[Rfam]
RNA: U7 small nuclear RNA
Organism: Rhinopithecus roxellana
RNA sequence: UAGUGUUACAGCUCUUUUAGAAUUUGUCAAGCAGGCUUUUUGAUUUUUGCCAGAAAGCCCAG
Numbered sequence: 001u002a003g004u005g006u007u008a009c010a011g012c013u014c015u016u017u018u019a020g021a022a023u024u025u026g027u028c029a030a031g032c033a034g035g036c037u038u039u040u041u042g043a044u045u046u047u048u049g050c051c052a053g054a055a056a057g058c059c060c061a062g
Stems, first nucleotide, its partner, number of pairs: 034059009044049001